The record is a 67-nucleotide sequence from Sipha flava, which matches "mir-29 microRNA precursor family" in Rfam.
Rfam's curators write: This family represents the microRNA (miRNA) precursors mir-29.

[Rfam]
RNA sequence: CGAGUACUGGUUUCGUAUUGGUGGGUAGAGUUAUAUACUGUCUAGCACCAUUUGAAACCAGUACUUA
Numbered sequence: 001c002g003a004g005u006a007c008u009g010g011u012u013u014c015g016u017a018u019u020g021g022u023g024g025g026u027a028g029a030g031u032u033a034u035a036u037a038c039u040g041u042c043u044a045g046c047a048c049c050a051u052u053u054g055a056a057a058c059c060a061g062u063a064c065u066u067a
Stems, first nucleotide, its partner, number of pairs: 002066003007061009019050005026044004

Its family is annotated with gene silencing by miRNA and RISC complex in the Gene Ontology. The family's consensus secondary structure was predicted with PFOLD.